[Rfam]
RNA sequence: GCGAUGAGCUGAUUUGCAUAAGUCGAGAUAACGCGCCUUUAUGGCAGGCACAAAUGUGGAGUGCUGUUCUCUCGCCGCAAUACGCAAAAAGACGUCCUUAGGGACGUCUU
Numbered sequence: 001g002c003g004a005u006g007a008g009c010u011g012a013u014u015u016g017c018a019u020a021a022g023u024c025g026a027g028a029u030a031a032c033g034c035g036c037c038u039u040u041a042u043g044g045c046a047g048g049c050a051c052a053a054a055u056g057u058g059g060a061g062u063g064c065u066g067u068u069c070u071c072u073c074g075c076c077g078c079a080a081u082a083c084g085c086a087a088a089a090a091g092a093c094g095u096c097c098u099u100a101g102g103g104a105c106g107u108c109u110u
Stems, first nucleotide, its partner, number of pairs: 014080004024074005030068003035045002047065002050062002089110009